This 42-nucleotide RNA from Shigella dysenteriae belongs to the Rfam family "ES036 (CssrF) sRNA". Rfam's curators write: Differentially expressed under several chemical stress conditions. Also identified in Shigella as CssrF.

[Rfam]
RNA sequence: AAAUGUGCAAAUUCAAUAAAUUGCAAUUCACCUUGUAGGCCU
Numbered sequence: 001a002a003a004u005g006u007g008c009a010a011a012u013u014c015a016a017u018a019a020a021u022u023g024c025a026a027u028u029c030a031c032c033u034u035g036u037a038g039g040c041c042u
Stems, first nucleotide, its partner, number of pairs: 004030001006025005
The base pairs follow the family's consensus structure, which was predicted with RNAfold. On this family, see Rau et al., BMC Genomics 2015: "Differential expression of small RNAs under chemical stress and fed-batch fermentation in E. coli". By type it is a small RNA. NCBI's taxonomy places the organism under Bacteria, Pseudomonadota, Enterobacterales, Enterobacteriaceae, Shigella dysenteriae. The match comes from Rfam's covariance-model search (38 bits).